[Rfam]
The family of this 177-nucleotide RNA sequence from Lactobacillus corticis is "Lysine riboswitch aptamer".
Pairs were carried over by alignment from the consensus structure, which is taken from published work.
RNA sequence: CAAUGCAAUAGAGGUCGCAACCAGAACUAACUUGAUUGGAGCACACGAAUGCGGUGAAGAUCAAGUUGAGGCUGGGUUGCCGAAGCGGCUUGCUUCUUCGUGGAAGUCGGCUGCUGGGCUGCAGGAGCAUAUUCUGCAGACUGUCCUGGUUAGUCCCCAGGGAGCGCUAUAUGAUUU
Numbered sequence: 001c002a003a004u005g006c007a008a009u010a011g012a013g014g015u016c017g018c019a020a021c022c023a024g025a026a027c028u029a030a031c032u033u034g035a036u037u038g039g040a041g042c043a044c045a046c047g048a049a050u051g052c053g054g055u056g057a058a059g060a061u062c063a064a065g066u067u068g069a070g071g072c073u074g075g076g077u078u079g080c081c082g083a084a085g086c087g088g089c090u091u092g093c094u095u096c097u098u099c100g101u102g103g104a105a106g107u108c109g110g111c112u113g114c115u116g117g118g119c120u121g122c123a124g125g126a127g128c129a130u131a132u133u134c135u136g137c138a139g140a141c142u143g144u145c146c147u148g149g150u151u152a153g154u155c156c157c158c159a160g161g162g163a164g165c166g167c168u169a170u171a172u173g174a175u176u177u
Base pairs, nucleotide, nucleotide: 008170009169010168011167017080018079019078020077021076022075024073031065032064033063034062035061036060037059084115085114086113087112088111089110090109092107093106094105095104116142117141119139120138121137122136123135124134125133126132144162145161146160147159148158149157